U12 minor spliceosomal RNA: a 354-nucleotide RNA from Peromyscus maniculatus. Its Rfam clan is "U2 clan". Pairs were carried over by alignment from the consensus structure. The match comes from Rfam's covariance-model search (89 bits).
[Rfam]
RNA sequence: AUGCCUUAAACUUAUGAGUAAGGAAAUUAACGAUUCGGGGUUGUAGCUGGAGAGUUUUCUCUCUGGGUCCCGCCAAGCCCCAGCAAUCCAACAGUCCACUUAUUGUUUCCCUCUGCCUUCCUGUUCUCUCAAAUCUCCUGUUAGUCCCGCCUAUACUUCCUGCCUGGCUACUGGCCAAUCAGUGUUUUUAUUGACCAAUCAGAGCCAACACAUUUGACAUACAGACCAUCCCACAGCACAGGGUGAUGCCUGAGUCCCCAUUGCUGACGUGAGAAGAAUUUUUGAGUGGGUAAAGGUUGCUCCCUAAGGCGACCCACCUACCUUGCAGGAUGCCUGGGUGUGGUAGUCUGCCCG
Numbered sequence: 001a002u003g004c005c006u007u008a009a010a011c012u013u014a015u016g017a018g019u020a021a022g023g024a025a026a027u028u029a030a031c032g033a034u035u036c037g038g039g040g041u042u043g044u045a046g047c048u049g050g051a052g053a054g055u056u057u058u059c060u061c062u063c064u065g066g067g068u069c070c071c072g073c074c075a076a077g078c079c080c081c082a083g084c085a086a087u088c089c090a091a092c093a094g095u096c097c098a099c100u101u102a103u104u105g106u107u108u109c110c111c112u113c114u115g116c117c118u119u120c121c122u123g124u125u126c127u128c129u130c131a132a133a134u135c136u137c138c139u140g141u142u143a144g145u146c147c148c149g150c151c152u153a154u155a156c157u158u159c160c161u162g163c164c165u166g167g168c169u170a171c172u173g174g175c176c177a178a179u180c181a182g183u184g185u186u187u188u189u190a191u192u193g194a195c196c197a198a199u200c201a202g203a204g205c206c207a208a209c210a211c212a213u214u215u216g217a218c219a220u221a222c223a224g225a226c227c228a229u230c231c232c233a234c235a236g237c238a239c240a241g242g243g244u245g246a247u248g249c250c251u252g253a254g255u256c257c258c259c260a261u262u263g264c265u266g267a268c269g270u271g272a273g274a275a276g277a278a279u280u281u282u283u284g285a286g287u288g289g290g291u292a293a294a295g296g297u298u299g300c301u302c303c304c305u306a307a308g309g310c311g312a313c314c315c316a317c318c319u320a321c322c323u324u325g326c327a328g329g330a331u332g333c334c335u336g337g338g339u340g341u342g343g344u345a346g347u348c349u350g351c352c353c354g
Base pairs, nucleotide, nucleotide: 004023005022006021007020008019032256033255034254035253036252037251038250039249257273259271260270261269287354288353289352290351291350294349295348296347297346298345299344300343303338304337307335308334309333310332311331313329314328317325